[Rfam]
Shown here is a 77-nucleotide RNA from Neolamprologus brichardi, a member of the family "Small nucleolar RNA SNORD83".
Lineage of the source: Eukaryota > Actinopterygii > Percomorphaceae > Ovalentaria > Neolamprologus.
The family's consensus secondary structure was predicted with PFOLD.
The family's RNA type in Rfam is C/D-box small nucleolar RNA.
On this family, see Jady and Kiss, Nucleic Acids Res 2000: "Characterisation of the U83 and U84 small nucleolar RNAs: two novel 2'-O-ribose methylation guide RNAs that lack complementarities to ribosomal RNAs".

RNA sequence: GCCACGUGAUGAGUUGAGUAGCUGCAGCAGCUUUCGGGCCGUGGUGACUUGCUAUCUAUCACCCAUAACUGAUGGCU
Numbered sequence: 001g002c003c004a005c006g007u008g009a010u011g012a013g014u015u016g017a018g019u020a021g022c023u024g025c026a027g028c029a030g031c032u033u034u035c036g037g038g039c040c041g042u043g044g045u046g047a048c049u050u051g052c053u054a055u056c057u058a059u060c061a062c063c064c065a066u067a068a069c070u071g072a073u074g075g076c077u
Base pairs, nucleotide, nucleotide: 001076002075003074004073030039031038032037